RNA sequence: CCUGCCGUCAAAACUGCAGUUGUGAUGUGCUUCUUAUUUUUAUCAUAUCACAGCCAGCUUUGAUGAGCGGGA
Numbered sequence: 001c002c003u004g005c006c007g008u009c010a011a012a013a014c015u016g017c018a019g020u021u022g023u024g025a026u027g028u029g030c031u032u033c034u035u036a037u038u039u040u041u042a043u044c045a046u047a048u049c050a051c052a053g054c055c056a057g058c059u060u061u062g063a064u065g066a067g068c069g070g071g072a
Stems, first nucleotide, its partner, number of pairs: 006065007015056002019054007028047002
RNA: mir-2 microRNA precursor family